[Rfam]
RNA: mir-981 microRNA precursor family
Organism: Danaus plexippus
RNA sequence: CCGCACAUAAUUCGGGUUUCGGGACGAUGGAACCGUGUAUAGACCUGGUUCGUUGUCGACGAAACCUGCAAAAUGUGCGG
Numbered sequence: 001c002c003g004c005a006c007a008u009a010a011u012u013c014g015g016g017u018u019u020c021g022g023g024a025c026g027a028u029g030g031a032a033c034c035g036u037g038u039a040u041a042g043a044c045c046u047g048g049u050u051c052g053u054u055g056u057c058g059a060c061g062a063a064a065c066c067u068g069c070a071a072a073a074u075g076u077g078c079g080g
Stems, first nucleotide, its partner, number of pairs: 001080006013068009030051005